[Rfam]
RNA sequence: UUUGGUGCGAUGAUUAUAAAAAUUCCUCGUUCUGAUUGCUAAAUGGCAUGACAGACACCUUACACCCAUAGAAUAUGAGCACCA
Numbered sequence: 001u002u003u004g005g006u007g008c009g010a011u012g013a014u015u016a017u018a019a020a021a022a023u024u025c026c027u028c029g030u031u032c033u034g035a036u037u038g039c040u041a042a043a044u045g046g047c048a049u050g051a052c053a054g055a056c057a058c059c060u061u062a063c064a065c066c067c068a069u070a071g072a073a074u075a076u077g078a079g080c081a082c083c084a
Stems, first nucleotide, its partner, number of pairs: 003084002006081002

Notes
Small nucleolar RNA snoR8a: an 84-nucleotide RNA from Amborella trichopoda. A reference for the family is Brown et al. (2001), "Multiple snoRNA gene clusters from Arabidopsis", RNA. Rfam links the family to the GO terms RNA processing and nucleolus. Rfam 15.1 lists 956 matches to the family in 245 species. Lineage of the source: Eukaryota > Embryophyta > Euphyllophyta > Amborellaceae > Amborella. Rfam classes the family as a C/D-box small nucleolar RNA.